Background: Rfam assigns this 112-nucleotide RNA from Nakaseomyces glabratus to the family "Small nucleolar RNA snR66". Its family is annotated with RNA processing and nucleolus in the Gene Ontology. The base pairs follow the family's consensus structure. Rfam classes the family as a C/D-box small nucleolar RNA. The organism belongs to Nakaseomyces, within Eukaryota.
[Rfam]
RNA sequence: UUUUUUUUUAAUAUGAUGAAAUACCAAUGCAACAUAGAGUCAAGCUCUGAGCUAUACAAAUAGAUAGAAUAGCACGGAAGAGACUUGCUACUUAUUAUCUGAUCCCAUAAAA
Numbered sequence: 001u002u003u004u005u006u007u008u009u010a011a012u013a014u015g016a017u018g019a020a021a022u023a024c025c026a027a028u029g030c031a032a033c034a035u036a037g038a039g040u041c042a043a044g045c046u047c048u049g050a051g052c053u054a055u056a057c058a059a060a061u062a063g064a065u066a067g068a069a070u071a072g073c074a075c076g077g078a079a080g081a082g083a084c085u086u087g088c089u090a091c092u093u094a095u096u097a098u099c100u101g102a103u104c105c106c107a108u109a110a111a112a
Stems, first nucleotide, its partner, number of pairs: 001112004006107001